Overview:
The record is a 59-nucleotide sequence from Galactobacter valiniphilus, which matches "msiK RNA" in Rfam. The source organism's lineage runs through Bacteria, Bacillati, Actinomycetes, Micrococcales and Galactobacter. The match comes from Rfam's covariance-model search (55 bits). By type it is a cis-regulatory element.

RNA sequence: AGCCACACCUGUUCUCUACGGAUCGUCGGGCACGUACCUGCCCGGGAAAAGGUUGAUGC
Numbered sequence: 001a002g003c004c005a006c007a008c009c010u011g012u013u014c015u016c017u018a019c020g021g022a023u024c025g026u027c028g029g030g031c032a033c034g035u036a037c038c039u040g041c042c043c044g045g046g047a048a049a050a051g052g053u054u055g056a057u058g059c
Base pairs, nucleotide, nucleotide: 009051010050012048013047014046015045027044028043029042030041031040032039